RNA sequence: CGGGGACACGGCAGACUCCCCCUUCAGACGGCCUCCGUCCAAGCUCUGC
Number, nucleotide and partner (000 for none) at each position: 001c000002g021003g020004g019005g018006a017007c000008a000009c000010g000011g049012c048013a047014g046015a045016c000017u006018c005019c004020c003021c002022c000023u000024u000025c000026a000027g039028a038029c037030g036031g035032c000033c000034u000035c031036c030037g029038u028039c027040c000041a000042a000043g000044c000045u015046c014047u013048g012049c011

chrB-b RNA: a 49-nucleotide RNA. It is annotated as a cis-regulatory element.